[Rfam]
RNA sequence: UAUUAGGUUGGUGCAAAAGUAACUAUGUGUUUUGCCAUUAUUUAUAAUGGCAAAACACAUAGUUACUUUUGCACCAACCUAAUA
Numbered sequence: 001u002a003u004u005a006g007g008u009u010g011g012u013g014c015a016a017a018a019g020u021a022a023c024u025a026u027g028u029g030u031u032u033u034g035c036c037a038u039u040a041u042u043u044a045u046a047a048u049g050g051c052a053a054a055a056c057a058c059a060u061a062g063u064u065a066c067u068u069u070u071g072c073a074c075c076a077a078c079c080u081a082a083u084a
Stems, first nucleotide, its partner, number of pairs: 001084040
Dot-bracket structure: ((((((((((((((((((((((((((((((((((((((((....))))))))))))))))))))))))))))))))))))))))

The family of this 84-nucleotide RNA from Callithrix jacchus is "mir-548 microRNA precursor family".
Lineage of the source: Eukaryota > Chordata > Euteleostomi > Amniota > Callithrix.
For this family Rfam cites "Deep sequencing of the small RNA transcriptome of normal and malignant human B cells identifies hundreds of novel microRNAs" (Jima et al., Blood, 2010).